[Rfam]
RNA sequence: UACGUGUUUGCAGGAGAGAUCAGCCCUGCUGGCGCCGACGGAGCAACCACCCCGGAAACUCUCAGGCAAAAGGACUGCAAAUAACGC
Numbered sequence: 001u002a003c004g005u006g007u008u009u010g011c012a013g014g015a016g017a018g019a020u021c022a023g024c025c026c027u028g029c030u031g032g033c034g035c036c037g038a039c040g041g042a043g044c045a046a047c048c049a050c051c052c053c054g055g056a057a058a059c060u061c062u063c064a065g066g067c068a069a070a071a072g073g074a075c076u077g078c079a080a081a082u083a084a085c086g087c
Stems, first nucleotide, its partner, number of pairs: 006082008020032004034067003037063002041061003047055002